[Rfam]
RNA sequence: UUUGAAAAAGCUAAACCUAUCGUGAGGUAGGGGCGGAAAGCCACAGGUCUUAAAAAAAGAGACAGCUGGGUUGCCAAAA
Numbered sequence: 001u002u003u004g005a006a007a008a009a010g011c012u013a014a015a016c017c018u019a020u021c022g023u024g025a026g027g028u029a030g031g032g033g034c035g036g037a038a039a040g041c042c043a044c045a046g047g048u049c050u051u052a053a054a055a056a057a058a059g060a061g062a063c064a065g066c067u068g069g070g071u072u073g074c075c076a077a078a079a
Stems, first nucleotide, its partner, number of pairs: 001079001003076002011036002016031006034065001039072004044068003047063003
c-di-GMP-I-GGC riboswitch aptamer: a 79-nucleotide RNA from Candidatus Moduliflexus flocculans. It scores 72 bits against the family's covariance model. Pairs were carried over by alignment from the consensus structure, which is taken from published work.